Rfam assigns this 99-nucleotide RNA sequence from Mesobacillus selenatarsenatis to the family "TPP riboswitch aptamer (THI element)". Lineage of the source: Bacteria > Bacillati > Caryophanales > Bacillaceae > Mesobacillus selenatarsenatis. A search with the family's covariance model found it, with a score of 83 bits. The family's consensus secondary structure is taken from published work.
[Rfam]
RNA sequence: UUUUUGCACUAGGGGAGCUUUAGGCUGAGAAGAACUUUGUUCUGACCCUUAUUACCCGAUCUGGAUAAUACCAGCGUGGGGAAGUGCAGGUGAAGCUCU
Numbered sequence: 001u002u003u004u005u006g007c008a009c010u011a012g013g014g015g016a017g018c019u020u021u022a023g024g025c026u027g028a029g030a031a032g033a034a035c036u037u038u039g040u041u042c043u044g045a046c047c048c049u050u051a052u053u054a055c056c057c058g059a060u061c062u063g064g065a066u067a068a069u070a071c072c073a074g075c076g077u078g079g080g081g082a083a084g085u086g087c088a089g090g091u092g093a094a095g096c097u098c099u
Stems, first nucleotide, its partner, number of pairs: 006087005011049004016043001017025003032042004055080004061074004